[Rfam]
RNA: Plastid-psbA-1 3UTR RNA
Organism: Morus notabilis
RNA sequence: GUAGAAGUUCCAUCUACAAAUGGAUAAGACUUCUAUAUUAAUAUUAGUGUAUAGGAGUUUUUAAAAAUAAAAAAAAAAAGGAGCAAUACCAAACUUCUUGUUCUAUCACGAAGUUUGGUAUUGCUCCUUUUUU
Dot-bracket structure: ........(((((......)))))....................................................(((((((((((((.(((.(((.(........).))).))).)))))))))))))...